[Rfam]
RNA: MIR5565 microRNA precursor family
Organism: Miscanthus lutarioriparius
RNA sequence: GCACAUGUAUCCACGUCAAUCUACAUAUGUUGAAGUGGAUUAGGGUGGAAAUUAGUUUAAGUUCCACUCUAAUUCACUUCGACGCAUAUGGAUUGAGUUGGAUAUAUAU
Numbered sequence: 001g002c003a004c005a006u007g008u009a010u011c012c013a014c015g016u017c018a019a020u021c022u023a024c025a026u027a028u029g030u031u032g033a034a035g036u037g038g039a040u041u042a043g044g045g046u047g048g049a050a051a052u053u054a055g056u057u058u059a060a061g062u063u064c065c066a067c068u069c070u071a072a073u074u075c076a077c078u079u080c081g082a083c084g085c086a087u088a089u090g091g092a093u094u095g096a097g098u099u100g101g102a103u104a105u106a107u108a109u
Stems, first nucleotide, its partner, number of pairs: 005107009016096008025087002028084005035077009045067003